This 437-nucleotide part of an RNA from Azoarcus sp. KH32C belongs to the Rfam family "Bacterial large subunit ribosomal RNA". A reference for the family is Cannone et al. (2002), "The comparative RNA web (CRW) site: an online database of comparative sequence and structure information for ribosomal, intron, and other RNAs", BMC Bioinformatics. The family is grouped with related families in Rfam's "LSU clan". Gene Ontology terms of the family: structural constituent of ribosome and ribosome.

[Rfam]
RNA sequence: CUCCCCGAAAACUAUUUAGGUAGUGCGUCGUACGGACACUUGCGGGGGUAGAGCACUGUAAUCGUUGGGGGGGUCACUGCGAUCUACCCCGCGAUAGCAAACUCCGAAUACCGCAAAGUGAUAUACGGCAGACAGUCCUGGGGUGCUAACGUCCUGGGACGAGAGGGAAACAACCCAGACCGCCAGCUAAGGUCCCAAAUACAUGGCUAAGUGGGAAACGAAGUGGGAAGGCAUAGACAGCUAGGAGGUUGGCUUAGAAGCAGCCACCCUUUAAAGAAAGCGUAAUAGCUCACUAGUCGAGUCGUCCUGCGCGGAAGAUGUAACGGGGCUCAAGCCAUGAACCGAAGCUGCGGAUCUCGUAAGAGAUGGUAGGGGAGCGUUCCGUAAGCCUGCGAAGGUGUCUCGAGAGGGAUGCUGGAGGUAUCGGAAGUGCGAAU
Numbered sequence: 001c002u003c004c005c006c007g008a009a010a011a012c013u014a015u016u017u018a019g020g021u022a023g024u025g026c027g028u029c030g031u032a033c034g035g036a037c038a039c040u041u042g043c044g045g046g047g048g049u050a051g052a053g054c055a056c057u058g059u060a061a062u063c064g065u066u067g068g069g070g071g072g073g074u075c076a077c078u079g080c081g082a083u084c085u086a087c088c089c090c091g092c093g094a095u096a097g098c099a100a101a102c103u104c105c106g107a108a109u110a111c112c113g114c115a116a117a118g119u120g121a122u123a124u125a126c127g128g129c130a131g132a133c134a135g136u137c138c139u140g141g142g143g144u145g146c147u148a149a150c151g152u153c154c155u156g157g158g159a160c161g162a163g164a165g166g167g168a169a170a171c172a173a174c175c176c177a178g179a180c181c182g183c184c185a186g187c188u189a190a191g192g193u194c195c196c197a198a199a200u201a202c203a204u205g206g207c208u209a210a211g212u213g214g215g216a217a218a219c220g221a222a223g224u225g226g227g228a229a230g231g232c233a234u235a236g237a238c239a240g241c242u243a244g245g246a247g248g249u250u251g252g253c254u255u256a257g258a259a260g261c262a263g264c265c266a267c268c269c270u271u272u273a274a275a276g277a278a279a280g281c282g283u284a285a286u287a288g289c290u291c292a293c294u295a296g297u298c299g300a301g302u303c304g305u306c307c308u309g310c311g312c313g314g315a316a317g318a319u320g321u322a323a324c325g326g327g328g329c330u331c332a333a334g335c336c337a338u339g340a341a342c343c344g345a346a347g348c349u350g351c352g353g354a355u356c357u358c359g360u361a362a363g364a365g366a367u368g369g370u371a372g373g374g375g376a377g378c379g380u381u382c383c384g385u386a387a388g389c390c391u392g393c394g395a396a397g398g399u400g401u402c403u404c405g406a407g408a409g410g411g412a413u414g415c416u417g418g419a420g421g422u423a424u425c426g427g428a429a430g431u432g433c434g435a436a437u
Stems, first nucleotide, its partner, number of pairs: 001377006011024005026131001027129006036122001040116006051105001052103002057099003061095004068088002071085005135160010165176003180353004185349003191343003200340001202339006219313002223310006230303003240297005246270003251265003271275001276291001280289002354367005378432001380429005388422003397416008